RNA sequence: GCUGUUGCAGGGUAGGAGGAAAGAGGUGUUACCUUUUCAGCUGCCACCUCUUCCAUCCUCUCCUCUGAAGCAGC
Numbered sequence: 001g002c003u004g005u006u007g008c009a010g011g012g013u014a015g016g017a018g019g020a021a022a023g024a025g026g027u028g029u030u031a032c033c034u035u036u037u038c039a040g041c042u043g044c045c046a047c048c049u050c051u052u053c054c055a056u057c058c059u060c061u062c063c064u065c066u067g068a069a070g071c072a073g074c
Base pairs, nucleotide, nucleotide: 001074002073003072004071005070006069008067009066010065011063012062014059015058016057017056018054019053021052022051023050024049025048026047027046028045030043031042033040034039